[Rfam]
RNA sequence: GCCUGCAUACGUCCCUGAAACUGCCUCUCCUGCGGCCUGGCGGCUAUGGAGGGCGGUCGUUAGGGCGGUCCUGGAAACGGGGCCGUCUCCCGUUGCGGAAAGGGGAUCGCGGAAGUUUGCC
Numbered sequence: 001g002c003c004u005g006c007a008u009a010c011g012u013c014c015c016u017g018a019a020a021c022u023g024c025c026u027c028u029c030c031u032g033c034g035g036c037c038u039g040g041c042g043g044c045u046a047u048g049g050a051g052g053g054c055g056g057u058c059g060u061u062a063g064g065g066c067g068g069u070c071c072u073g074g075a076a077a078c079g080g081g082g083c084c085g086u087c088u089c090c091c092g093u094u095g096c097g098g099a100a101a102g103g104g105g106a107u108c109g110c111g112g113a114a115g116u117u118u119g120c121c
Stems, first nucleotide, its partner, number of pairs: 003115002006112001011107006020057006027051004034045004063088011089098002

A member of the RNA family "Molybdenum/Tungsten riboswitch aptamer (Moco RNA motif)" from Cloacibacillus evryensis, 121 nucleotides long.